[Rfam]
RNA sequence: CAGCAAGAAAUGGGGUGCUUGUUUUAACAGGCUGAGAGAAUACCCAGGGCUUUGCCCGAAACCUGAUCCGGAUAAUACCGGCGUAGGGAUUUCUAAGAAAAUCGGU
Numbered sequence: 001c002a003g004c005a006a007g008a009a010a011u012g013g014g015g016u017g018c019u020u021g022u023u024u025u026a027a028c029a030g031g032c033u034g035a036g037a038g039a040a041u042a043c044c045c046a047g048g049g050c051u052u053u054g055c056c057c058g059a060a061a062c063c064u065g066a067u068c069c070g071g072a073u074a075a076u077a078c079c080g081g082c083g084u085a086g087g088g089a090u091u092u093c094u095a096a097g098a099a100a101a102u103c104g105g106u
Stems, first nucleotide, its partner, number of pairs: 006094005011058004017032005039051001041049001062087004068081004
The record is a 106-nucleotide RNA from Haloflavibacter putidus, which matches "TPP riboswitch aptamer (THI element)" in Rfam. About the family: Vitamin B(1) in its active form thiamin pyrophosphate (TPP) is an essential coenzyme that is synthesised by coupling of pyrimidine and thiazole moieties in bacteria.